RNA sequence: CGACGUCUUCAGGGCGGGGUGAAAUUCCCCACCGGCGGUAGGUCCCCGGGGCGACCCGGCGACGAGCCCGCGAGCGCUUCCGUUGCAGGCGAGUCCCUCGCAAGAGCCCGCAUAUCGAUGUGCGGACUUCCGGCAGGCGGAAGGUCAGCAGAUCCGGUCCGAAGCCGGAGCCGACGGUUGGAUGCCGCGCGAGCGGCGUCCUCACAGUCCGGAUGAAAGAAGGCGGUC
Numbered sequence: 001c002g003a004c005g006u007c008u009u010c011a012g013g014g015c016g017g018g019g020u021g022a023a024a025u026u027c028c029c030c031a032c033c034g035g036c037g038g039u040a041g042g043u044c045c046c047c048g049g050g051g052c053g054a055c056c057c058g059g060c061g062a063c064g065a066g067c068c069c070g071c072g073a074g075c076g077c078u079u080c081c082g083u084u085g086c087a088g089g090c091g092a093g094u095c096c097c098u099c100g101c102a103a104g105a106g107c108c109c110g111c112a113u114a115u116c117g118a119u120g121u122g123c124g125g126a127c128u129u130c131c132g133g134c135a136g137g138c139g140g141a142a143g144g145u146c147a148g149c150a151g152a153u154c155c156g157g158u159c160c161g162a163a164g165c166c167g168g169a170g171c172c173g174a175c176g177g178u179u180g181g182a183u184g185c186c187g188c189g190c191g192a193g194c195g196g197c198g199u200c201c202u203c204a205c206a207g208u209c210c211g212g213a214u215g216a217a218a219g220a221a222g223g224c225g226g227u228c
Stems, first nucleotide, its partner, number of pairs: 004225007017029003033173002035071004066171002074149002153169005175211003